[Rfam]
Nucleotides: 084
Stems, first nucleotide, its partner, number of pairs: 001084006013072001015070007023062002026059006033052001035050002
Number, partner (000 for none) and nucleotide at each position: 001084u002083c003082c004081u005080a006079a007000a008000g009000a010000a011000u012000u013072g014000u015070a016069g017068c018067a019066g020065c021064a022000c023062a024061u025000c026059a027058u028057g029056a030055u031054u032000u033052g034000c035050a036049u037000g038000c039000u040000u041000u042000a043000u044000c045000a046000g047000a048000a049036a050035u051000a052033c053000u054031a055030a056029u057028c058027a059026u060000u061024a062023u063000u064021u065020g066019c067018u068017g069016c070015u071000u072013c073000a074000g075000g076000a077000u078000u079006u080005u081004g082003g083002g084001a
Shown here is an 84-nucleotide RNA sequence from Hymenochirus boettgeri, a member of the family "mir-15 microRNA precursor family".
The family's consensus secondary structure was predicted with RNAalifold.
On this family, see Lagos-Quintana et al., Science 2001: "Identification of novel genes coding for small expressed RNAs".
Rfam links the family to the GO terms miRNA-mediated post-transcriptional gene silencing and RISC complex.
NCBI's taxonomy places the organism under Eukaryota, Gnathostomata, Teleostomi, Anura, Hymenochirus.